[Rfam]
The record is an 87-nucleotide sequence from Araneus ventricosus, which matches "Vault RNA" in Rfam. The family's consensus secondary structure is taken from published work. NCBI's taxonomy places the organism under Eukaryota, Chelicerata, Araneomorphae, Araneidae, Araneus. Rfam 15.1 lists 2,873 matches to the family in 431 species. This family of RNAs are found as part of the enigmatic vault ribonucleoprotein complex. The complex consists of a major vault protein (MVP), two minor vault proteins (VPARP and TEP1), and several small untranslated RNA molecules. It has been suggested that the vault complex is involved in drug resistance. Rfam classes the family as a non-coding RNA gene.

RNA sequence: GUGCAGGUUUGGUCCAGUGGUUACUUUGAACAGACACGAACCUCCUCCUCACGUUGGGGAAAACCACGGACGCCGUCCUGCGCUUUU
Numbered sequence: 001g002u003g004c005a006g007g008u009u010u011g012g013u014c015c016a017g018u019g020g021u022u023a024c025u026u027u028g029a030a031c032a033g034a035c036a037c038g039a040a041c042c043u044c045c046u047c048c049u050c051a052c053g054u055u056g057g058g059g060a061a062a063a064c065c066a067c068g069g070a071c072g073c074c075g076u077c078c079u080g081c082g083c084u085u086u087u
Stems, first nucleotide, its partner, number of pairs: 002082006012071004017067004025061001